This 162-nucleotide RNA from Linnemannia gamsii belongs to the Rfam family "U1 spliceosomal RNA".
RNA sequence: AUACUUACCUGGCUGGAUUUCCCUCUGAUCAACAAGGGAGGGGAAUCUGGGAGGAGUGUCUGCAUUGCACAGCGCGGAUGUUCUUCCCAGUGAAUGUCCUUCGGGACAUCUCAACAGCUUAAUUUUUACAUCGGGUCUCGUGUCCUUUCGGGGAUGUGGGAC
Numbered sequence: 001a002u003a004c005u006u007a008c009c010u011g012g013c014u015g016g017a018u019u020u021c022c023c024u025c026u027g028a029u030c031a032a033c034a035a036g037g038g039a040g041g042g043g044a045a046u047c048u049g050g051g052a053g054g055a056g057u058g059u060c061u062g063c064a065u066u067g068c069a070c071a072g073c074g075c076g077g078a079u080g081u082u083c084u085u086c087c088c089a090g091u092g093a094a095u096g097u098c099c100u101u102c103g104g105g106a107c108a109u110c111u112c113a114a115c116a117g118c119u120u121a122a123u124u125u126u127u128a129c130a131u132c133g134g135g136u137c138u139c140g141u142g143u144c145c146u147u148u149c150g151g152g153g154a155u156g157u158g159g160g161a162c
Stems, first nucleotide, its partner, number of pairs: 012118004016047011048089004053085001055082003059078005091113003094109003098105002136161006143154004
Rfam classes the family as a spliceosomal small nuclear RNA. The base pairs follow the family's consensus structure, which is taken from published work. NCBI's taxonomy places the organism under Eukaryota, Opisthokonta, Mortierellomycotina, Mortierellomycetes, Linnemannia. U1 is a small nuclear RNA (snRNA) component of the spliceosome (involved in pre-mRNA splicing). Its 5' end forms complementary base pairs with the 5' splice junction, thus defining the 5' donor site of an intron. There are significant differences in sequence and secondary structure between metazoan and yeast U1 snRNAs, the latter being much longer (568 nucleotides as compared to 164 nucleotides in human). Nevertheless, secondary structure predictions suggest that all U1 snRNAs share a 'common core' consisting of helices I, II, the proximal region of III, and IV. This family does not contain the larger yeast sequences. A search with the family's covariance model found it, with a score of 93 bits.